[Rfam]
RNA sequence: GCGGAAGGCCGGAUGGCCGCGGUCCUGGCAACGGGGUCGAGGAAAGUCCGGACUCCCAGAAGUAACGGUGCCGGGUAACGCCCGGGCGGGGUAACCCGACGGAAAGCGCCACAGAAAAGAAACCGCCUUGUCACCCGGUCGGGCAACCGAAACCAGUGGCGGGUAAGGGUGAAACGGUGGGGUAAGAGCCCACCGCGCGACUGGCAACAGAAGCGGCACGGCAAGCCCCACCGGGAGCAAUGCCAAAUAGGGAUCGCGUGCCGACCGGCAACGGAAGGCGGGGCCGCUUUUGCCCCAGCAGAUCCGGGUUGGCAGCUGUAGCCAUACGGGCAAUCGUAUGGUCAGAGGAAUGGUCAUCGAACCGGGGCAACCCGGGGAACAGAAUCCGGCUUACAGGCCUUCCGCGCAU
Numbered sequence: 001g002c003g004g005a006a007g008g009c010c011g012g013a014u015g016g017c018c019g020c021g022g023u024c025c026u027g028g029c030a031a032c033g034g035g036g037u038c039g040a041g042g043a044a045a046g047u048c049c050g051g052a053c054u055c056c057c058a059g060a061a062g063u064a065a066c067g068g069u070g071c072c073g074g075g076u077a078a079c080g081c082c083c084g085g086g087c088g089g090g091g092u093a094a095c096c097c098g099a100c101g102g103a104a105a106g107c108g109c110c111a112c113a114g115a116a117a118a119g120a121a122a123c124c125g126c127c128u129u130g131u132c133a134c135c136c137g138g139u140c141g142g143g144c145a146a147c148c149g150a151a152a153c154c155a156g157u158g159g160c161g162g163g164u165a166a167g168g169g170u171g172a173a174a175c176g177g178u179g180g181g182g183u184a185a186g187a188g189c190c191c192a193c194c195g196c197g198c199g200a201c202u203g204g205c206a207a208c209a210g211a212a213g214c215g216g217c218a219c220g221g222c223a224a225g226c227c228c229c230a231c232c233g234g235g236a237g238c239a240a241u242g243c244c245a246a247a248u249a250g251g252g253a254u255c256g257c258g259u260g261c262c263g264a265c266c267g268g269c270a271a272c273g274g275a276a277g278g279c280g281g282g283g284c285c286g287c288u289u290u291u292g293c294c295c296c297a298g299c300a301g302a303u304c305c306g307g308g309u310u311g312g313c314a315g316c317u318g319u320a321g322c323c324a325u326a327c328g329g330g331c332a333a334u335c336g337u338a339u340g341g342u343c344a345g346a347g348g349a350a351u352g353g354u355c356a357u358c359g360a361a362c363c364g365g366g367g368c369a370a371c372c373c374g375g376g377g378a379a380c381a382g383a384a385u386c387c388g389g390c391u392u393a394c395a396g397g398c399c400u401u402c403c404g405c406g407c408a409u
Base pairs, nucleotide, nucleotide: 001405002404003403004402005401006400007399008398009397010396011394012358013357014356015355016354017353018352020039021038022037023036024035025034026033027032044392045391046390048389049388050387051386052385053237054236055235056234061289062288066233067232068231069230070229071085072084073083074082075081086100087098088097089096090095101228102227106226107225108222109221110220123168124167125164126163127162129161130160131159132158133157134156176194177193178192179191180190181189195217196215197214198213201210202209203208241314242313243312244311251305252304253303254302255301280296281295282294283293284292322341323340324339325338326337327336328335329334
A member of the RNA family "Bacterial RNase P class A" from Roseobacter ponti, 409 nucleotides long. Pairs were carried over by alignment from the consensus structure, which is taken from published work. Gene Ontology terms of the family: tRNA processing, dimeric ribonuclease P complex and ribonuclease P activity.